[Rfam]
RNA sequence: CGGCGCUUGAGGCUUUUUGCCUCAUGGCGAUCUGGUCGUUUGUCGUGUGGUAGAAAGAAGAAAGCCCCGAGUCAUUUUUCAAUUAACCCGAGGCUUACCCUAUGCCAGACAACAUCAGAGUAGCCUCUUACCCGCCGAAAGGCAAGGAGAAGAAGGCUAUGAAG
Numbered sequence: 001c002g003g004c005g006c007u008u009g010a011g012g013c014u015u016u017u018u019g020c021c022u023c024a025u026g027g028c029g030a031u032c033u034g035g036u037c038g039u040u041u042g043u044c045g046u047g048u049g050g051u052a053g054a055a056a057g058a059a060g061a062a063a064g065c066c067c068c069g070a071g072u073c074a075u076u077u078u079u080c081a082a083u084u085a086a087c088c089c090g091a092g093g094c095u096u097a098c099c100c101u102a103u104g105c106c107a108g109a110c111a112a113c114a115u116c117a118g119a120g121u122a123g124c125c126u127c128u129u130a131c132c133c134g135c136c137g138a139a140a141g142g143c144a145a146g147g148a149g150a151a152g153a154a155g156g157c158u159a160u161g162a163a164g
Stems, first nucleotide, its partner, number of pairs: 002067002005065004013057009023047001026044005069089001071087002074083003090127005097121002100118001102115003131156002135152001

Notes
This 164-nucleotide sequence from Jejuibacter calystegiae belongs to the Rfam family "sok antitoxin (CssrC)". Rfam describes the family as follows. Also identified in Shigella as CssrC. Its family is annotated with mRNA binding in the Gene Ontology.